Shown here is a 72-nucleotide sequence from Vespula pensylvanica, a member of the family "mir-137 microRNA precursor family". The match comes from Rfam's covariance-model search (71 bits). Clan: mir-137 clan. On this family, see Ruby et al., Genome Res 2007: "Evolution, biogenesis, expression, and target predictions of a substantially expanded set of Drosophila microRNAs". NCBI's taxonomy places the organism under Eukaryota, Protostomia, Allotriocarida, Eumetabola, Vespula.
RNA sequence: GUUGGCGACGAGUAUUCUUGGGAAAUUAACACACAUUGGGGAUGUUAUUGCUUGAGAAUACACGUAGUUUGC
Numbered sequence: 001g002u003u004g005g006c007g008a009c010g011a012g013u014a015u016u017c018u019u020g021g022g023a024a025a026u027u028a029a030c031a032c033a034c035a036u037u038g039g040g041g042a043u044g045u046u047a048u049u050g051c052u053u054g055a056g057a058a059u060a061c062a063c064g065u066a067g068u069u070u071g072c
Base pairs, nucleotide, nucleotide: 001072002071004069005068008065009064010063012061013060014059015058016057017056018055019054020053021052022051025049027047028046029045030044031043032041